[Rfam]
RNA sequence: UGGUCGGGAGGGCACCGGUGGGACGGUGCUCACGAAUAGACCGAAACGUAUCGUCUCGUAUGGGCGAGGUGCCGUGGCCCGACGGCGUCCUCG
Numbered sequence: 001u002g003g004u005c006g007g008g009a010g011g012g013c014a015c016c017g018g019u020g021g022g023a024c025g026g027u028g029c030u031c032a033c034g035a036a037u038a039g040a041c042c043g044a045a046a047c048g049u050a051u052c053g054u055c056u057c058g059u060a061u062g063g064g065c066g067a068g069g070u071g072c073c074g075u076g077g078c079c080c081g082a083c084g085g086c087g088u089c090c091u092c093g
Stems, first nucleotide, its partner, number of pairs: 001043005010031008065093005070087005
The family of this 93-nucleotide sequence from Roseobacter litoralis is "Rhodo-rpoB RNA". Taxonomically the source falls in Roseobacter litoralis (Bacteria, Rhodobacterales, Roseobacteraceae, Roseobacter). The family's consensus secondary structure is taken from published work. It is annotated as a cis-regulatory element.